[Rfam]
RNA sequence: CCUCCUUUUCUUGGCCAGCCGGGCCUGCGAUCCGCUCCCCACCAUGUGCAGGAAAGGGCUCCGGUCCCCUCGGCGUCAUGUCUGCCGUGCCGGCUGCUUCCCAUUCGCCGGUUCUGUCCUCCAGCAGUGAGACAGGG
Numbered sequence: 001c002c003u004c005c006u007u008u009u010c011u012u013g014g015c016c017a018g019c020c021g022g023g024c025c026u027g028c029g030a031u032c033c034g035c036u037c038c039c040c041a042c043c044a045u046g047u048g049c050a051g052g053a054a055a056g057g058g059c060u061c062c063g064g065u066c067c068c069c070u071c072g073g074c075g076u077c078a079u080g081u082c083u084g085c086c087g088u089g090c091c092g093g094c095u096g097c098u099u100c101c102c103a104u105u106c107g108c109c110g111g112u113u114c115u116g117u118c119c120u121c122c123a124g125c126a127g128u129g130a131g132a133c134a135g136g137g
Base pairs, nucleotide, nucleotide: 001052002051003050005048012041013040014039017036019034021033022032071129072128075125076124090111091110092109093108094107096105